[Rfam]
RNA sequence: AGUUGUAAAUAUCGCACUACUCGUAUAAUUCUGAUGAUGAGGAUCAGAAGUUUCUACCAGACGCCUUAAAUGUCUGACUACGAGUAAGUUAUAGAAGCUU
Numbered sequence: 001a002g003u004u005g006u007a008a009a010u011a012u013c014g015c016a017c018u019a020c021u022c023g024u025a026u027a028a029u030u031c032u033g034a035u036g037a038u039g040a041g042g043a044u045c046a047g048a049a050g051u052u053u054c055u056a057c058c059a060g061a062c063g064c065c066u067u068a069a070a071u072g073u074c075u076g077a078c079u080a081c082g083a084g085u086a087a088g089u090u091a092u093a094g095a096a097g098c099u100u
Stems, first nucleotide, its partner, number of pairs: 018086008029049007058076006